[Rfam]
RNA sequence: UGUAAACUUUAGGGGUGUUCUAAAUAUGUAGAACUGAGAAAAACCCUUUGAACCUGAUCCGGUUAGUACCAGCGAAGGGAAAAGUAACAAAAUCCAC
Numbered sequence: 001u002g003u004a005a006a007c008u009u010u011a012g013g014g015g016u017g018u019u020c021u022a023a024a025u026a027u028g029u030a031g032a033a034c035u036g037a038g039a040a041a042a043a044c045c046c047u048u049u050g051a052a053c054c055u056g057a058u059c060c061g062g063u064u065a066g067u068a069c070c071a072g073c074g075a076a077g078g079g080a081a082a083a084g085u086a087a088c089a090a091a092a093u094c095c096a097c
Stems, first nucleotide, its partner, number of pairs: 006085005011047004016041001017034005053078003059072001061070002

The family of this 97-nucleotide RNA from Gelidibacter salicanalis is "TPP riboswitch aptamer (THI element)". The base pairs follow the family's consensus structure, which is taken from published work. The organism belongs to Gelidibacter, within Bacteria. About the family: Vitamin B(1) in its active form thiamin pyrophosphate (TPP) is an essential coenzyme that is synthesised by coupling of pyrimidine and thiazole moieties in bacteria.